Annotation: Shown here is a 50-nucleotide RNA from Jiella endophytica, a member of the family "Xanthine riboswitch aptamer (NMT1 RNA)".

RNA sequence: CCGCCGAGUAGAAGCGGUCAGGCGGUUUCCGCCGGGACAUUGCUCAGUUG
Numbered sequence: 001c002c003g004c005c006g007a008g009u010a011g012a013a014g015c016g017g018u019c020a021g022g023c024g025g026u027u028u029c030c031g032c033c034g035g036g037a038c039a040u041u042g043c044u045c046a047g048u049u050g
Stems, first nucleotide, its partner, number of pairs: 006045005015035001018037002021033004
Notes:
Pairs were carried over by alignment from the consensus structure, which is taken from published work. Its family is annotated with purine nucleobase binding in the Gene Ontology. Taxonomically the source falls in Jiella (Bacteria, Pseudomonadati, Alphaproteobacteria, Hyphomicrobiales).